[Rfam]
RNA sequence: AGAAUACGAUGGCCCCCUCCUCCUCCCUGGGGUCGCUCGUGAGCGGUAAUGGCACUCCUCCUCCCAGCCAUUGCCGCACCCUAUACGCGGCCCCUCCUCCUCCCUGGGCCAGCGUUGCGC
Numbered sequence: 001a002g003a004a005u006a007c008g009a010u011g012g013c014c015c016c017c018u019c020c021u022c023c024u025c026c027c028u029g030g031g032g033u034c035g036c037u038c039g040u041g042a043g044c045g046g047u048a049a050u051g052g053c054a055c056u057c058c059u060c061c062u063c064c065c066a067g068c069c070a071u072u073g074c075c076g077c078a079c080c081c082u083a084u085a086c087g088c089g090g091c092c093c094c095u096c097c098u099c100c101u102c103c104c105u106g107g108g109c110c111a112g113c114g115u116u117g118c119g120c
Stems, first nucleotide, its partner, number of pairs: 007039003010035007044076010085115004089110005

Shown here is a 120-nucleotide RNA from Paracoccus aminophilus, a member of the family "Alphaproteobacterial ar14". Gene Ontology term of the family: biological process involved in symbiotic interaction. It is annotated as a small RNA. The match comes from Rfam's covariance-model search (71 bits).